[Rfam]
The family of this 165-nucleotide RNA sequence from Otolemur garnettii is "Small nucleolar RNA SNORA29". NCBI's taxonomy places the organism under Eukaryota, Gnathostomata, Primates, Strepsirrhini, Otolemur. Rfam describes the family as follows. ACA29 is a member of the H/ACA class of snoRNA that guide the sites of modification of uridines to pseudouridines. Pairs were carried over by alignment from the consensus structure, which was predicted with PFOLD. It scores 80 bits against the family's covariance model. Its Rfam clan is "SNORA20 clan". For this family Rfam cites "RNomics: an experimental approach that identifies 201 candidates for novel, small, non-messenger RNAs in mouse" (Huttenhofer et al., EMBO J, 2001). Rfam classes the family as an H/ACA-box small nucleolar RNA. Rfam 15.1 lists 960 matches to the family in 621 species.
Nucleotides: 165
Base pairs, nucleotide, nucleotide: 004059005058006057013044014043015042016041073152074151075150076149091140092139093138
Number, partner (000 for none) and nucleotide at each position: 001000c002000u003000u004059c005058c006057c007000c008000u009000u010000u011000u012000a013044u014043c015042a016041c017000u018000u019000u020000u021000u022000a023000u024000c025000u026000u027000a028000g029000u030000a031000a032000u033000a034000g035000a036000c037000u038000u039000c040000a041016g042015u043014g044013g045000u046000u047000a048000g049000a050000u051000g052000c053000u054000u055000a056000u057006g058005g059004g060000a061000u062000a063000g064000a065000u066000u067000a068000a069000a070000a071000u072000u073152g074151u075150c076149a077000u078000g079000a080000u081000c082000u083000g084000a085000a086000a087000a088000g089000g090000g091140a092139g093138g094000u095000u096000u097000u098000a099000u100000u101000u102000a103000c104000u105000u106000a107000u108000u109000u110000a111000u112000u113000u114000g115000u116000u117000u118000g119000u120000u121000u122000g123000u124000u125000u126000u127000g128000g129000u130000a131000u132000u133000c134000u135000u136000a137000u138093u139092c140091u141000a142000u143000a144000u145000g146000c147000a148000g149076u150075g151074g152073c153000u154000g155000g156000a157000c158000a159000g160000a161000a162000a163000u164000u165000u